[Rfam]
RNA: Nitrogen stress-induced RNA 1
RNA sequence: UGGUAGAUGCACCCUGAUGGAUAUAUCCCGGCACCAAAACGCCGGGAAUUUUUUA
Numbered sequence: 001u002g003g004u005a006g007a008u009g010c011a012c013c014c015u016g017a018u019g020g021a022u023a024u025a026u027c028c029c030g031g032c033a034c035c036a037a038a039a040c041g042c043c044g045g046g047a048a049u050u051u052u053u054u055a
Stems, first nucleotide, its partner, number of pairs: 002013003026047007